Shown here is a 542-nucleotide part of an RNA from Cavenderia deminutiva, a member of the family "Eukaryotic small subunit ribosomal RNA". Taxonomically the source falls in Cavenderia (Eukaryota, Evosea, Eumycetozoa, Cavenderiaceae). Gene Ontology terms of the family: ribosome and structural constituent of ribosome. Rfam's curators put it in the seed alignment.

[Rfam]
RNA sequence: CAGUUAAAACGCUCGUAGCUUAAAAACACGGAUCAUUUUUUAGCUAAAUCGAUUGCCACCUGGAAACAGGUGAGGUGAUUUAUUUGGCAUGGCACGUGCUGGUUGGGUUUGUUGGUUCGCUCUAGCAAGCUUAGUCAACUGUGCAUAAACCUUGAUGCUCAAGGUAAAGACCGUAGGUCUGUGAUACUAAGUGCAUGGUAUUGUAGAACAUGGUAACAGGUGGCUUUGUUGGUUGGGUCACUAGUGCAAUGAUUAAUAGGGAGGAGCGGGGGCCUUCAUAUUGAUGGGCGAGAGGUGAAAUUCGUUGACCCUAUCAAGAUGUCCUACAGCGAAAGCAUUGGCCAAGUGCCUCUCCAUUAGUCAAGAACGAUAGUUUGGGGAUCAAAGACGAUCAGAUACCGUCGUAGUCCAAACCAUAAACGAUGUCGACCAGUGAUUAGGCACGUCACCUUUCUAGAGAACUGCCUAGGAACUUAGUGGGAAACCAUUGAGUUUUUGGACUCUGGGGGGAGUAUGGUCGCAAGGCUGAAACUUAAAGGAAU
Numbered sequence: 001c002a003g004u005u006a007a008a009a010c011g012c013u014c015g016u017a018g019c020u021u022a023a024a025a026a027c028a029c030g031g032a033u034c035a036u037u038u039u040u041u042a043g044c045u046a047a048a049u050c051g052a053u054u055g056c057c058a059c060c061u062g063g064a065a066a067c068a069g070g071u072g073a074g075g076u077g078a079u080u081u082a083u084u085u086g087g088c089a090u091g092g093c094a095c096g097u098g099c100u101g102g103u104u105g106g107g108u109u110u111g112u113u114g115g116u117u118c119g120c121u122c123u124a125g126c127a128a129g130c131u132u133a134g135u136c137a138a139c140u141g142u143g144c145a146u147a148a149a150c151c152u153u154g155a156u157g158c159u160c161a162a163g164g165u166a167a168a169g170a171c172c173g174u175a176g177g178u179c180u181g182u183g184a185u186a187c188u189a190a191g192u193g194c195a196u197g198g199u200a201u202u203g204u205a206g207a208a209c210a211u212g213g214u215a216a217c218a219g220g221u222g223g224c225u226u227u228g229u230u231g232g233u234u235g236g237g238u239c240a241c242u243a244g245u246g247c248a249a250u251g252a253u254u255a256a257u258a259g260g261g262a263g264g265a266g267c268g269g270g271g272g273c274c275u276u277c278a279u280a281u282u283g284a285u286g287g288g289c290g291a292g293a294g295g296u297g298a299a300a301u302u303c304g305u306u307g308a309c310c311c312u313a314u315c316a317a318g319a320u321g322u323c324c325u326a327c328a329g330c331g332a333a334a335g336c337a338u339u340g341g342c343c344a345a346g347u348g349c350c351u352c353u354c355c356a357u358u359a360g361u362c363a364a365g366a367a368c369g370a371u372a373g374u375u376u377g378g379g380g381a382u383c384a385a386a387g388a389c390g391a392u393c394a395g396a397u398a399c400c401g402u403c404g405u406a407g408u409c410c411a412a413a414c415c416a417u418a419a420a421c422g423a424u425g426u427c428g429a430c431c432a433g434u435g436a437u438u439a440g441g442c443a444c445g446u447c448a449c450c451u452u453u454c455u456a457g458a459g460a461a462c463u464g465c466c467u468a469g470g471a472a473c474u475u476a477g478u479g480g481g482a483a484a485c486c487a488u489u490g491a492g493u494u495u496u497u498g499g500a501c502u503c504u505g506g507g508g509g510g511a512g513u514a515u516g517g518u519c520g521c522a523a524g525g526c527u528g529a530a531a532c533u534u535a536a537a538g539g540a541a542u
Stems, first nucleotide, its partner, number of pairs: 001505003009502001011368001013366002018361003259355003263350002266347002271343004277321002281317008292303003329336002373414006383407001387403004425501003428494003432474003437469007446461001479486002507534003516527004